[Rfam]
Source information
mir-166 microRNA precursor family: a 140-nucleotide RNA from Panicum virgatum. This family represents the plant microRNA (miRNA) precursor mir-166. It scores 72 bits against the family's covariance model. Rfam links the family to the GO terms miRNA-mediated post-transcriptional gene silencing and RISC complex.
RNA sequence: GUUAAGGGGGUUGUUGUCUGGUUCAAGGUCACCACAAGCAGGCAAACCCAUUUUGCAUUGCUUAACAUGCAGUACGCAUGGGUCAUGCAUGGGUGUAUCGAUCUAUUGGUGAUCUCGGACCAGGCUUCAAUCCCUUUAAC
Numbered sequence: 001g002u003u004a005a006g007g008g009g010g011u012u013g014u015u016g017u018c019u020g021g022u023u024c025a026a027g028g029u030c031a032c033c034a035c036a037a038g039c040a041g042g043c044a045a046a047c048c049c050a051u052u053u054u055g056c057a058u059u060g061c062u063u064a065a066c067a068u069g070c071a072g073u074a075c076g077c078a079u080g081g082g083u084c085a086u087g088c089a090u091g092g093g094u095g096u097a098u099c100g101a102u103c104u105a106u107u108g109g110u111g112a113u114c115u116c117g118g119a120c121c122a123g124g125c126u127u128c129a130a131u132c133c134c135u136u137u138a139a140c
Stems, first nucleotide, its partner, number of pairs: 001140013016125006024117001026115009

Taxonomically the source falls in Panicum sect. Hiantes (Eukaryota, Spermatophyta, Magnoliopsida, Panicum).